[Rfam]
RNA: Enterobacteria greA leader
Organism: Enterobacterales bacterium CwR94
RNA sequence: GUCAUACUAAGGUGCAUUACGGGGUAAAGUAAACGAUGACCCAUAAGGAACUCUGCGGUAAAAUACGUAUCAAAAUGAAAACCAUCUUGGCCUGACCGUUGUGUCGGGUCAGGAUUCUUU
Numbered sequence: 001g002u003c004a005u006a007c008u009a010a011g012g013u014g015c016a017u018u019a020c021g022g023g024g025u026a027a028a029g030u031a032a033a034c035g036a037u038g039a040c041c042c043a044u045a046a047g048g049a050a051c052u053c054u055g056c057g058g059u060a061a062a063a064u065a066c067g068u069a070u071c072a073a074a075a076u077g078a079a080a081a082c083c084a085u086c087u088u089g090g091c092c093u094g095a096c097c098g099u100u101g102u103g104u105c106g107g108g109u110c111a112g113g114a115u116u117c118u119u120u
Stems, first nucleotide, its partner, number of pairs: 001040005011034001014030002041048002057071004086113011